The family of this 70-nucleotide RNA from Paris verticillata is "Plastid-clpP 5UTR RNA".
On this family, see Richter et al., Plant Commun 2023: "Retrograde signaling in plants: A critical review focusing on the GUN pathway and beyond".
The family's consensus secondary structure was predicted with LocARNA.
Lineage of the source: Eukaryota > Viridiplantae > Embryophyta > Tracheophyta > Paris.
RNA sequence: AUUUAUGUUCGUAAGAACAAAGAGAAGCAGAUUUAUUCUAUACCGGAUAAGUACCAAUACGCAAUGGGGA
Numbered sequence: 001a002u003u004u005a006u007g008u009u010c011g012u013a014a015g016a017a018c019a020a021a022g023a024g025a026a027g028c029a030g031a032u033u034u035a036u037u038c039u040a041u042a043c044c045g046g047a048u049a050a051g052u053a054c055c056a057a058u059a060c061g062c063a064a065u066g067g068g069g070a
Stems, first nucleotide, its partner, number of pairs: 003022002006019005043068002051060003